Shown here is an 81-nucleotide RNA sequence from Tistrella mobilis, a member of the family "Makes More Granules Regulator RNA (mmgR)". NCBI's taxonomy places the organism under Bacteria, Pseudomonadati, Alphaproteobacteria, Geminicoccales, Tistrella mobilis. Clan: suhB sRNA clan. SuhB later renamed mmgR (makes more granules regulator) was a putative non-coding RNA found multiple times in the Agrobacterium tumefaciens genome and related alpha-proteobacteria.
[Rfam]
RNA sequence: UGUUGCAGCCCAGUUUUUGGGCGUUUCCUCCCUAGACUUUGGGCCGUACCGAUUGCUGGUACGGCCUUUUUUUUGUCUCGA
Numbered sequence: 001u002g003u004u005g006c007a008g009c010c011c012a013g014u015u016u017u018u019g020g021g022c023g024u025u026u027c028c029u030c031c032c033u034a035g036a037c038u039u040u041g042g043g044c045c046g047u048a049c050c051g052a053u054u055g056c057u058g059g060u061a062c063g064g065c066c067u068u069u070u071u072u073u074u075g076u077c078u079c080g081a
Stems, first nucleotide, its partner, number of pairs: 008022004042066009
Dot-bracket structure: .......((((.......))))...................(((((((((.......)))))))))...............